Small nucleolar RNA snoR27: a 100-nucleotide sequence from Salvia splendens. Rfam links the family to the GO terms RNA processing and nucleolus. NCBI's taxonomy places the organism under Eukaryota, Streptophytina, Spermatophyta, Pentapetalae, core Calosphace. The family has 6 seed sequences and 649 matches in Rfam 15.1. Rfam classes the family as a C/D-box small nucleolar RNA.

[Rfam]
Nucleotides: 100
Base pairs, nucleotide, nucleotide: 002099003098004097005096006095007094
Number, partner (000 for none) and nucleotide at each position: 001000u002099u003098u004097g005096g006095a007094u008000c009000a010000a011000u012000g013000a014000u015000g016000c017000u018000g019000u020000a021000u022000a023000u024000u025000a026000c027000u028000g029000c030000g031000u032000u033000a034000u035000c036000u037000a038000u039000c040000u041000g042000u043000a044000a045000u046000a047000a048000a049000u050000u051000a052000g053000u054000u055000u056000u057000u058000g059000a060000a061000g062000a063000u064000c065000c066000a067000a068000u069000a070000u071000c072000u073000a074000g075000a076000a077000u078000u079000a080000a081000u082000u083000u084000u085000c086000u087000c088000c089000c090000u091000g092000a093000u094007a095006u096005c097004c098003a099002a100000u